[Rfam]
RNA sequence: GAGCACUUGAUACUAACCGAGCCAUCAGUGUCCUCUGCAGCCUCUGCAGGGACACCCUGUGAUUGCUGGGUCUGCAAAGUGCAACAGCAAAAGAAGCCAUGCAGUGUUUAAGCUCAGUGUGUGAAGAAAGACACUGGGUUAUAGCUCAGAGGCACAGAA
Numbered sequence: 001g002a003g004c005a006c007u008u009g010a011u012a013c014u015a016a017c018c019g020a021g022c023c024a025u026c027a028g029u030g031u032c033c034u035c036u037g038c039a040g041c042c043u044c045u046g047c048a049g050g051g052a053c054a055c056c057c058u059g060u061g062a063u064u065g066c067u068g069g070g071u072c073u074g075c076a077a078a079g080u081g082c083a084a085c086a087g088c089a090a091a092a093g094a095a096g097c098c099a100u101g102c103a104g105u106g107u108u109u110a111a112g113c114u115c116a117g118u119g120u121g122u123g124a125a126g127a128a129a130g131a132c133a134c135u136g137g138g139u140u141a142u143a144g145c146u147c148a149g150a151g152g153c154a155c156a157g158a159a
Stems, first nucleotide, its partner, number of pairs: 003082006016071003020067003024063003028055005033049001036048005096153003117132002120129001122127001134149006
A member of the RNA family "Small Cajal body specific RNA 1" from Pheucticus melanocephalus, 159 nucleotides long. Gene Ontology terms of the family: nucleolus, RNA processing and Cajal body. NCBI's taxonomy places the organism under Eukaryota, Deuterostomia, Gnathostomata, Amniota, Pheucticus. A search with the family's covariance model found it, with a score of 118 bits. Rfam classes the family as a small Cajal body RNA.